[Rfam]
RNA sequence: CUAUUGGAGAGUUUGAUCCUGGCUCAGGACGAACGCUGGCGGCGUGCUUAACACAUGCAAGUCACGGGGGCCCGCAAGGGUAACCGGCGAACGGGUGCGUAACACGUGAACAAUCUGCCUAGAUGUGGGGGAUAGCCGGCCCAACGGCCGGGUAAUACCGCAUACGCUCUUCGGGUGGCAUCACUUGAAGAGGAAACCUCCGGGGCAUCUAGAGGAGUUCGCGGCCUAUCAGCUAGUUGGUGGGGUAACGGCCUACCAAGGCAAUGACGGGUAGCUGGUCUGAGAGGAUGGCCAGCCACAUUGGGACUGAGAUACGGCCCAGACUCCUACGGGAGGCAGCAGUGGGGAAUAUUGCGCAAUGGCCGAAAGGCUGACGCAGCGACGCCGCGUGGGGGAUGAAGCAUUUCGGUGUGUAAACCCCUGUUGCCCGGGACGAACAAGCGAUUUUGAUCGCUCUGACGGUACCGGGUGAGGAAGCACCGGCUAACUCCGUGCCAGCAGCCGCGGUAAUACGGAGGGUGCGAGCGUUGUCCGGAAUCACUG
Numbered sequence: 001c002u003a004u005u006g007g008a009g010a011g012u013u014u015g016a017u018c019c020u021g022g023c024u025c026a027g028g029a030c031g032a033a034c035g036c037u038g039g040c041g042g043c044g045u046g047c048u049u050a051a052c053a054c055a056u057g058c059a060a061g062u063c064a065c066g067g068g069g070g071c072c073c074g075c076a077a078g079g080g081u082a083a084c085c086g087g088c089g090a091a092c093g094g095g096u097g098c099g100u101a102a103c104a105c106g107u108g109a110a111c112a113a114u115c116u117g118c119c120u121a122g123a124u125g126u127g128g129g130g131g132a133u134a135g136c137c138g139g140c141c142c143a144a145c146g147g148c149c150g151g152g153u154a155a156u157a158c159c160g161c162a163u164a165c166g167c168u169c170u171u172c173g174g175g176u177g178g179c180a181u182c183a184c185u186u187g188a189a190g191a192g193g194a195a196a197c198c199u200c201c202g203g204g205g206c207a208u209c210u211a212g213a214g215g216a217g218u219u220c221g222c223g224g225c226c227u228a229u230c231a232g233c234u235a236g237u238u239g240g241u242g243g244g245g246u247a248a249c250g251g252c253c254u255a256c257c258a259a260g261g262c263a264a265u266g267a268c269g270g271g272u273a274g275c276u277g278g279u280c281u282g283a284g285a286g287g288a289u290g291g292c293c294a295g296c297c298a299c300a301u302u303g304g305g306a307c308u309g310a311g312a313u314a315c316g317g318c319c320c321a322g323a324c325u326c327c328u329a330c331g332g333g334a335g336g337c338a339g340c341a342g343u344g345g346g347g348a349a350u351a352u353u354g355c356g357c358a359a360u361g362g363c364c365g366a367a368a369g370g371c372u373g374a375c376g377c378a379g380c381g382a383c384g385c386c387g388c389g390u391g392g393g394g395g396a397u398g399a400a401g402c403a404u405u406u407c408g409g410u411g412u413g414u415a416a417a418c419c420c421c422u423g424u425u426g427c428c429c430g431g432g433a434c435g436a437a438c439a440a441g442c443g444a445u446u447u448u449g450a451u452c453g454c455u456c457u458g459a460c461g462g463u464a465c466c467g468g469g470u471g472a473g474g475a476a477g478c479a480c481c482g483g484c485u486a487a488c489u490c491c492g493u494g495c496c497a498g499c500a501g502c503c504g505c506g507g508u509a510a511u512a513c514g515g516a517g518g519g520u521g522c523g524a525g526c527g528u529u530g531u532c533c534g535g536a537a538u539c540a541c542u543g
Base pairs, nucleotide, nucleotide: 009025010024011023012022013021027533028532029531030530032529033528034527035526036525037524039388040387041386042385043384044383045381046380047346052344053343054342056341057340058339061088062087063086066085067084070081071080072079073078095299096298097297105223106222107221108220109219110218111217114216115215119212120211121210122209123208124207125206127161129159130158136151137150138149139148140147141146167192168191169190170189171188172187173186175184176183177182197204198203225271226270227269232262233261234260237259238258239257240256241255242254243253244252274296275295276294277293278289279288280287281286301322302321303320304319305318324335325334326333327332352378354377355376356375360373361372362371363370364369391421392420393419394418401412402411403410404409425474426470427469428468429467430466431465435460441454442453443452477522478521479520480519481518488517489516490515491514492513498505499504

This 543-nucleotide part of an RNA from Gemmatimonas aurantiaca belongs to the Rfam family "Bacterial small subunit ribosomal RNA". Lineage of the source: Bacteria > Gemmatimonadota > Gemmatimonadaceae > Gemmatimonas > Gemmatimonas aurantiaca. The sequence is in the family's curated seed alignment. Gene Ontology terms of the family: ribosome and structural constituent of ribosome.